[Rfam]
RNA sequence: CCUUGGGCAGUGACUCCAGGACUGUCCAACCUGAGAAUGGUGAGUCUCCAGGGUCGUUCUCAGGUUCGUCAGCCCAUGAGAUGCUGCCCCUUC
Numbered sequence: 001c002c003u004u005g006g007g008c009a010g011u012g013a014c015u016c017c018a019g020g021a022c023u024g025u026c027c028a029a030c031c032u033g034a035g036a037a038u039g040g041u042g043a044g045u046c047u048c049c050a051g052g053g054u055c056g057u058u059c060u061c062a063g064g065u066u067c068g069u070c071a072g073c074c075c076a077u078g079a080g081a082u083g084c085u086g087c088c089c090c091u092u093c
Stems, first nucleotide, its partner, number of pairs: 005090003008086005014080003019075002022072003026068001028066009038056002